Shown here is a 40-nucleotide RNA from Hubei polero-like virus 1, a member of the family "Putative RNA-dependent RNA polymerase ribosomal frameshift site". Rfam links the family to the GO term viral translational frameshifting. The source organism's lineage runs through Viruses and Riboviria. For this family Rfam cites "Nucleotide sequence analysis and genomic organization of the NY-RPV isolate of barley yellow dwarf virus" (Vincent et al., J Gen Virol, 1991).
RNA sequence: GGGAAACGGACCAAGCGGCACCGACCGCAAAACAACCGGC
Numbered sequence: 001g002g003g004a005a006a007c008g009g010a011c012c013a014a015g016c017g018g019c020a021c022c023g024a025c026c027g028c029a030a031a032a033c034a035a036c037c038g039g040c
Base pairs, nucleotide, nucleotide: 015028016027017026018025021039022038023037

The base pairs follow the family's consensus structure, which is taken from published work.